The family of this 126-nucleotide RNA from Streptomyces sp. Ru87 is "Glycine riboswitch aptamer". Its family is annotated with glycine biosynthetic process in the Gene Ontology. A search with the family's covariance model found it, with a score of 35 bits. On this family, see Babina et al., MBio 2017: "In Vivo Behavior of the Tandem Glycine Riboswitch in Bacillus subtilis". Lineage of the source: Bacteria > Bacillati > Actinomycetota > Kitasatosporales > Streptomyces.
RNA sequence: GUCACUCUGAAAAGCAGGGUCGGCACCGGGCGCCAGCCGCCGGGAGCUCUCCCUCACCGACGGUGAAAGCCGGACCGUUCACGACUGGUCCGGUGAAGCUCUCAGGUCGAUGACAGAGGGGGAGGC
Numbered sequence: 001g002u003c004a005c006u007c008u009g010a011a012a013a014g015c016a017g018g019g020u021c022g023g024c025a026c027c028g029g030g031c032g033c034c035a036g037c038c039g040c041c042g043g044g045a046g047c048u049c050u051c052c053c054u055c056a057c058c059g060a061c062g063g064u065g066a067a068a069g070c071c072g073g074a075c076c077g078u079u080c081a082c083g084a085c086u087g088g089u090c091c092g093g094u095g096a097a098g099c100u101c102u103c104a105g106g107u108c109g110a111u112g113a114c115a116g117a118g119g120g121g122g123a124g125g126c
Stems, first nucleotide, its partner, number of pairs: 002121002005118005016054004056107003059103002063101001065099001069094009
Rfam's curators write: This family represents the bacterial glycine riboswitch.